[Rfam]
RNA sequence: CAUGCUGCUGUCAGUAACAAGGAUUCAUCCUGUUGUGAUGCUACAGGCUGACAGGAAAUCACUGUUACUGAGGGCGCGUGU
Numbered sequence: 001c002a003u004g005c006u007g008c009u010g011u012c013a014g015u016a017a018c019a020a021g022g023a024u025u026c027a028u029c030c031u032g033u034u035g036u037g038a039u040g041c042u043a044c045a046g047g048c049u050g051a052c053a054g055g056a057a058a059u060c061a062c063u064g065u066u067a068c069u070g071a072g073g074g075c076g077c078g079u080g081u
Base pairs, nucleotide, nucleotide: 011071012070013069014068015067016066017065018064019063022060023059024058025057029055030054031053032052033051034050035049037048039046
The record is an 81-nucleotide sequence from Parambassis ranga, which matches "mir-459 microRNA precursor family" in Rfam.
The organism belongs to Parambassis, within Eukaryota.
It scores 82 bits against the family's covariance model.